[Rfam]
RNA sequence: AAUACAAUAUGCAAGCUUUCAAGGCAACUCGGGGCCCCUUCUUCAGGCGAGAUGUAAUCUUGUAAUCUUGUGUUACAACUUGCCUGAAGAAGGGGCCCCGAGUUGCCUUGAAAGCUUGCAUAUUGUAUU
Numbered sequence: 001a002a003u004a005c006a007a008u009a010u011g012c013a014a015g016c017u018u019u020c021a022a023g024g025c026a027a028c029u030c031g032g033g034g035c036c037c038c039u040u041c042u043u044c045a046g047g048c049g050a051g052a053u054g055u056a057a058u059c060u061u062g063u064a065a066u067c068u069u070g071u072g073u074u075a076c077a078a079c080u081u082g083c084c085u086g087a088a089g090a091a092g093g094g095g096c097c098c099c100g101a102g103u104u105g106c107c108u109u110g111a112a113a114g115c116u117u118g119c120a121u122a123u124u125g126u127a128u129u
Base pairs, nucleotide, nucleotide: 002128003127005125006124007123008122009121010120012118013117014116015115016114017113018112020110021109022108023107024106025105026104027103028102029101030100031099032098033097034096035095036094037093038092040090041089042088043087044086045085046084047083048082049081050080051079053077054076057074059072061070062069
MIR7725 microRNA precursor family: a 129-nucleotide sequence from Polypterus senegalus. The base pairs follow the family's consensus structure, which was predicted with RNAalifold.